[Rfam]
Source information: RT-19 RNA: a 106-nucleotide RNA sequence. The family's consensus secondary structure is taken from published work.
RNA sequence: ACUACCCUCCGUCAUGCCAACGAGAGGGCACGCCUCGGCCCAGCCGAAAAUCAAACCGAGCACGCGGCCGGUAGACGACCCACGCCAGCACCGUCGAACGCCGCCA
Dot-bracket structure: ....((((((((.......))).)))))...................................(((((.....(((................)))....)))))..